[Rfam]
RNA sequence: GUUGAUCUGAUGAUGAAAUAUAUUCGGAUGUAAACUUCACAGACCUGUUCUGAAUAGCGCAAAACCAUGUGGAUAUUUCCGUUGCCUUCCUUCUGAUAUGAUCAU
Numbered sequence: 001g002u003u004g005a006u007c008u009g010a011u012g013a014u015g016a017a018a019u020a021u022a023u024u025c026g027g028a029u030g031u032a033a034a035c036u037u038c039a040c041a042g043a044c045c046u047g048u049u050c051u052g053a054a055u056a057g058c059g060c061a062a063a064a065c066c067a068u069g070u071g072g073a074u075a076u077u078u079c080c081g082u083u084g085c086c087u088u089c090c091u092u093c094u095g096a097u098a099u100g101a102u103c104a105u
Base pairs, nucleotide, nucleotide: 003104004103005102025081026080027079028078